Shown here is a 318-nucleotide part of an RNA from Chrysodeixis includens, a member of the family "Archaeal large subunit ribosomal RNA". Pairs were carried over by alignment from the consensus structure, which is taken from published work. The family is grouped with related families in Rfam's "LSU clan".

RNA sequence: GAGUCUAGCAUGUGUGCGAGUCAUUGAUAUUGUAAAAUGAAAGGCGCAACGAAAGUGAAGGUGCACUCGUGCACUGAGGGAUGAUGGAGCGUCGGUCUAGGUCGACCUCUCGCAAUCCCGAGGCGCCUCGUUUCCAAUCCGUGAAUGUAGGUGCUCUGUGAGCAUACACGCUGGGACCCGAAAGAUGGUGAACUAUGCCUGGUCAGGUCGAAGUCCGGGGAAACCUGGAUGGAGGACCGCAGCGAUUCUGACGUGCAAAUCGAUCGUCGGAACUGGGUAUAGGGGCGAAAGACUAAUCGAACCAUCUAGUAGCUGGUU
Numbered sequence: 001g002a003g004u005c006u007a008g009c010a011u012g013u014g015u016g017c018g019a020g021u022c023a024u025u026g027a028u029a030u031u032g033u034a035a036a037a038u039g040a041a042a043g044g045c046g047c048a049a050c051g052a053a054a055g056u057g058a059a060g061g062u063g064c065a066c067u068c069g070u071g072c073a074c075u076g077a078g079g080g081a082u083g084a085u086g087g088a089g090c091g092u093c094g095g096u097c098u099a100g101g102u103c104g105a106c107c108u109c110u111c112g113c114a115a116u117c118c119c120g121a122g123g124c125g126c127c128u129c130g131u132u133u134c135c136a137a138u139c140c141g142u143g144a145a146u147g148u149a150g151g152u153g154c155u156c157u158g159u160g161a162g163c164a165u166a167c168a169c170g171c172u173g174g175g176a177c178c179c180g181a182a183a184g185a186u187g188g189u190g191a192a193c194u195a196u197g198c199c200u201g202g203u204c205a206g207g208u209c210g211a212a213g214u215c216c217g218g219g220g221a222a223a224c225c226u227g228g229a230u231g232g233a234g235g236a237c238c239g240c241a242g243c244g245a246u247u248c249u250g251a252c253g254u255g256c257a258a259a260u261c262g263a264u265c266g267u268c269g270g271a272a273c274u275g276g277g278u279a280u281a282g283g284g285g286c287g288a289a290a291g292a293c294u295a296a297u298c299g300a301a302c303c304a305u306c307u308a309g310u311a312g313c314u315g316g317u318u
Base pairs, nucleotide, nucleotide: 005174006173007172008171009170011168012167013166014165015164016163017162020045021044022043025042028039029038030037031036049056050055061074062073063072064071077157078156079155080154177316178315180313184306185305186304187303188302189301193282194281195280196279197278198277199276200275201274202273203272204270206238207237208236209235213230214229215228216227217226218225219224242267243266244265245264247263248262250261251260284294285293